[Rfam]
RNA sequence: UCGAAGAUGCGCGGGAGUCCGGUUCGACCGGGCUGAGAGGGCGGCUGAACGGGCCGCCGACCGCCAGAACCUGAUCCGGAUCAUGCCGGCGAAGGGAGCGAGAUGGACAUCGCG
Numbered sequence: 001u002c003g004a005a006g007a008u009g010c011g012c013g014g015g016a017g018u019c020c021g022g023u024u025c026g027a028c029c030g031g032g033c034u035g036a037g038a039g040g041g042c043g044g045c046u047g048a049a050c051g052g053g054c055c056g057c058c059g060a061c062c063g064c065c066a067g068a069a070c071c072u073g074a075u076c077c078g079g080a081u082c083a084u085g086c087c088g089g090c091g092a093a094g095g096g097a098g099c100g101a102g103a104u105g106g107a108c109a110u111c112g113c114g
Stems, first nucleotide, its partner, number of pairs: 008100003011064004017033005040058007070095003076089004
About this RNA: Shown here is a 114-nucleotide RNA sequence from Actinomadura viridis, a member of the family "TPP riboswitch aptamer (THI element)". The organism belongs to Actinomadura, within Bacteria. Rfam links the family to the GO term thiamine pyrophosphate binding.